[Rfam]
epsC RNA: a 118-nucleotide RNA from Bacillus salacetis. Rfam classes the family as a cis-regulatory element. It scores 98 bits against the family's covariance model. The source organism's lineage runs through Bacteria, Bacillati, Bacillota, Caryophanales and Bacillus. The family has 30 seed sequences and 450 matches in Rfam 15.1.

RNA sequence: CGGCUAUGUCUCCUACCCGCUAUCGUCGGAGGCACUCGACCAUGCUGUGGGCUGGCUCCUAGUCAGACCUUAGACAUCCAUUGUCAGUGGGGUGGUGUGAGGACGGGUUCGAUGCCCG
Numbered sequence: 001c002g003g004c005u006a007u008g009u010c011u012c013c014u015a016c017c018c019g020c021u022a023u024c025g026u027c028g029g030a031g032g033c034a035c036u037c038g039a040c041c042a043u044g045c046u047g048u049g050g051g052c053u054g055g056c057u058c059c060u061a062g063u064c065a066g067a068c069c070u071u072a073g074a075c076a077u078c079c080a081u082u083g084u085c086a087g088u089g090g091g092g093u094g095g096u097g098u099g100a101g102g103a104c105g106g107g108u109u110c111g112a113u114g115c116c117c118g
Stems, first nucleotide, its partner, number of pairs: 001019003007034007035101004039096005045090002049070003052066005073085004104118005